[Rfam]
RNA: Lysine riboswitch aptamer
Organism: Clostridiaceae bacterium AF18-31LB
RNA sequence: AAAAAUGAUAGAGGCGCAGGCUUUAUGAGUAGAUGUCAGUAUACGGUCGGAAACGGCUGGCAUGGAAAGGAGAGACUGCCGAAGGAAUCUGGAUAUUCCGAGAGAAGGGUUCCUGGGCUGCCGCAGAAUAUGCGUCAGACUGUCACAGGGCUGUGGAGCGCUAUCAUUGGU
Numbered sequence: 001a002a003a004a005a006u007g008a009u010a011g012a013g014g015c016g017c018a019g020g021c022u023u024u025a026u027g028a029g030u031a032g033a034u035g036u037c038a039g040u041a042u043a044c045g046g047u048c049g050g051a052a053a054c055g056g057c058u059g060g061c062a063u064g065g066a067a068a069g070g071a072g073a074g075a076c077u078g079c080c081g082a083a084g085g086a087a088u089c090u091g092g093a094u095a096u097u098c099c100g101a102g103a104g105a106a107g108g109g110u111u112c113c114u115g116g117g118c119u120g121c122c123g124c125a126g127a128a129u130a131u132g133c134g135u136c137a138g139a140c141u142g143u144c145a146c147a148g149g150g151c152u153g154u155g156g157a158g159c160g161c162u163a164u165c166a167u168u169g170g171u
Stems, first nucleotide, its partner, number of pairs: 006166006016079004021074004033063007083114008094103001115141002118138003122134004143156005